Rfam assigns this 122-nucleotide RNA sequence from Fulvimarina manganoxydans to the family "Alphaproteobacterial ar14".
The family's RNA type in Rfam is small RNA.
A search with the family's covariance model found it, with a score of 84 bits.
The base pairs follow the family's consensus structure.
Its family is annotated with biological process involved in symbiotic interaction in the Gene Ontology.
About the family: Smr14C2 was renamed NfeR1 (Nodule Formation Efficiency RNA) highly expressed in salt stress and during the symbiotic interaction on legume roots.
RNA sequence: AAGUUUUGCCGAGGACCUCCUCCUCCCAAUCCUCGGCGAAUAGGAGCCUGCAACUCCUCCUCCCAAAUGCAGGCUUCACUCAAACGACACCCGCCGGUUCCUCCCACCGGCGGGUGUUGUCG
Numbered sequence: 001a002a003g004u005u006u007u008g009c010c011g012a013g014g015a016c017c018u019c020c021u022c023c024u025c026c027c028a029a030u031c032c033u034c035g036g037c038g039a040a041u042a043g044g045a046g047c048c049u050g051c052a053a054c055u056c057c058u059c060c061u062c063c064c065a066a067a068u069g070c071a072g073g074c075u076u077c078a079c080u081c082a083a084a085c086g087a088c089a090c091c092c093g094c095c096g097g098u099u100c101c102u103c104c105c106a107c108c109g110g111c112g113g114g115u116g117u118u119g120u121c122g
Base pairs, nucleotide, nucleotide: 007038008037009036011034012033013032014031015030043077044076045075046074047073048072049071050070051069052068087117088116089115090114091113092112093111094110095109096108097107